[Rfam]
RNA sequence: GAAUUUUGAUUAACGCUCGGUCUCGGCUGAGCCAACUGGAAG
Numbered sequence: 001g002a003a004u005u006u007u008g009a010u011u012a013a014c015g016c017u018c019g020g021u022c023u024c025g026g027c028u029g030a031g032c033c034a035a036c037u038g039g040a041a042g
Stems, first nucleotide, its partner, number of pairs: 015032007
Rfam assigns this 42-nucleotide RNA sequence from Klebsiella indica to the family "nuoG RNA". The base pairs follow the family's consensus structure, which is taken from published work.